Rfam assigns this 88-nucleotide RNA from Scleropages formosus to the family "mir-146 microRNA precursor family". It scores 56 bits against the family's covariance model. On this family, see Cai et al., Proc Natl Acad Sci U S A 2005: "Kaposi's sarcoma-associated herpesvirus expresses an array of viral microRNAs in latently infected cells". The organism belongs to Scleropages, within Eukaryota.
RNA sequence: UUGAGCUCCUGGCCUUGAGAACUGGUUUCCAAGGGUUGUGGACCUAGCUCAGCCCCUGGGAUCCAGUUCUUAAUUCUGGAUGCUGCCA
Numbered sequence: 001u002u003g004a005g006c007u008c009c010u011g012g013c014c015u016u017g018a019g020a021a022c023u024g025g026u027u028u029c030c031a032a033g034g035g036u037u038g039u040g041g042a043c044c045u046a047g048c049u050c051a052g053c054c055c056c057u058g059g060g061a062u063c064c065a066g067u068u069c070u071u072a073a074u075u076c077u078g079g080a081u082g083c084u085g086c087c088a
Stems, first nucleotide, its partner, number of pairs: 008079002011076002018070008033055004